The family of this 98-nucleotide RNA from Compostibacillus humi is "Purine riboswitch aptamer". The source organism's lineage runs through Bacteria, Bacillati, Bacillota, Caryophanales and Compostibacillus. A search with the family's covariance model found it, with a score of 80 bits.
RNA sequence: AUAGCAUAUAGCCUUUUACCUCAUAUAAUUCUGGAAUAUGGCCAGAAGUUUCUACCUAGCACCGUAAAUGCUGGACUAUGAGGGAAGAUGAUUUCCUG
Numbered sequence: 001a002u003a004g005c006a007u008a009u010a011g012c013c014u015u016u017u018a019c020c021u022c023a024u025a026u027a028a029u030u031c032u033g034g035a036a037u038a039u040g041g042c043c044a045g046a047a048g049u050u051u052c053u054a055c056c057u058a059g060c061a062c063c064g065u066a067a068a069u070g071c072u073g074g075a076c077u078a079u080g081a082g083g084g085a086a087g088a089u090g091a092u093u094u095c096c097u098g
Stems, first nucleotide, its partner, number of pairs: 019083007029047006056074006